[Rfam]
RNA sequence: AAACUUACCUGACGCUAUUUUAAGGUGAUCAAUAAGGCCUUAAAAUAAUGACUGAACAACCAUUGCACACAGGUAUUGUGAUGUCAUUUGUGUGUCGUUAUGGUAACACAAGCGUAUAAUUUAUUACAGGCUAUUUUCUGUUGUUACAGUAUAGCU
Numbered sequence: 001a002a003a004c005u006u007a008c009c010u011g012a013c014g015c016u017a018u019u020u021u022a023a024g025g026u027g028a029u030c031a032a033u034a035a036g037g038c039c040u041u042a043a044a045a046u047a048a049u050g051a052c053u054g055a056a057c058a059a060c061c062a063u064u065g066c067a068c069a070c071a072g073g074u075a076u077u078g079u080g081a082u083g084u085c086a087u088u089u090g091u092g093u094g095u096c097g098u099u100a101u102g103g104u105a106a107c108a109c110a111a112g113c114g115u116a117u118a119a120u121u122u123a124u125u126a127c128a129g130g131c132u133a134u135u136u137u138c139u140g141u142u143g144u145u146a147c148a149g150u151a152u153a154g155c156u
Stems, first nucleotide, its partner, number of pairs: 012115004016047011048087004053083001056079002059076001060073002089110003093105002096102002130155005137148001139146002
Rfam assigns this 156-nucleotide sequence from Dermatophagoides pteronyssinus to the family "U1 spliceosomal RNA".
Its Rfam clan is "U1 clan".
The family's RNA type in Rfam is spliceosomal small nuclear RNA.